[Rfam]
RNA sequence: AUCACAAGUGUAGCAAUGGAAUAAUGAUUCCGUUUUUUAUGCGAAAGCUUGUGAACAAAAUUUUGCCGGAUAGUUCAUAUCACGCAGCAAUGGCGUAAGACGUAGUGAACCAUCAGGCAUUUAGCGGGCUGCGGGUUGCAGCCUGGACACACAACGGGAUUGGUUCACCUGGUAUUCUACUGGCGGUUCCCCCCCUUGAAUGCGCUGUUUUUCCAUAUGAAAAACAGGCAACCGAGAUUUUGCGCCCCUUGAGCAGCCGACAUCCGGGAGGUUGACGGCUUUGCGAUAAGACACGGGGCCAUCGGUUUAUAGCGUCCAGCGUUACUUUGCCCGCAGCUUUGUCCCUAA
Numbered sequence: 001a002u003c004a005c006a007a008g009u010g011u012a013g014c015a016a017u018g019g020a021a022u023a024a025u026g027a028u029u030c031c032g033u034u035u036u037u038u039a040u041g042c043g044a045a046a047g048c049u050u051g052u053g054a055a056c057a058a059a060a061u062u063u064u065g066c067c068g069g070a071u072a073g074u075u076c077a078u079a080u081c082a083c084g085c086a087g088c089a090a091u092g093g094c095g096u097a098a099g100a101c102g103u104a105g106u107g108a109a110c111c112a113u114c115a116g117g118c119a120u121u122u123a124g125c126g127g128g129c130u131g132c133g134g135g136u137u138g139c140a141g142c143c144u145g146g147a148c149a150c151a152c153a154a155c156g157g158g159a160u161u162g163g164u165u166c167a168c169c170u171g172g173u174a175u176u177c178u179a180c181u182g183g184c185g186g187u188u189c190c191c192c193c194c195c196u197u198g199a200a201u202g203c204g205c206u207g208u209u210u211u212u213c214c215a216u217a218u219g220a221a222a223a224a225c226a227g228g229c230a231a232c233c234g235a236g237a238u239u240u241u242g243c244g245c246c247c248c249u250u251g252a253g254c255a256g257c258c259g260a261c262a263u264c265c266g267g268g269a270g271g272u273u274g275a276c277g278g279c280u281u282u283g284c285g286a287u288a289a290g291a292c293a294c295g296g297g298g299c300c301a302u303c304g305g306u307u308u309a310u311a312g313c314g315u316c317c318a319g320c321g322u323u324a325c326u327u328u329g330c331c332c333g334c335a336g337c338u339u340u341g342u343c344c345c346u347a348a
Stems, first nucleotide, its partner, number of pairs: 003010002064119004069114002074109004082103003087094002126339011144318005150312001156195003165186002168183002201230003205227004210222004231306005244299005258277002261274002264271002

A member of the RNA family "RNase E 5' UTR element" from Erwinia sp. Leaf53, 348 nucleotides long. Rfam links the family to the GO term regulation of gene expression. It scores 217 bits against the family's covariance model. The organism belongs to Erwinia, within Bacteria. Rfam's curators write: This family represents a conserved element found in the 5' UTR of RNase E mRNA. RNase E is a key regulatory enzyme in the pathway of mRNA degradation in E. coli that is able to auto-regulate the degradation of its own mRNA in response to changes in RNase E activity. This rne 5' UTR element acts as a sensor of cellular RNase E concentration enabling tight regulation of RNase E concentration and synthesis.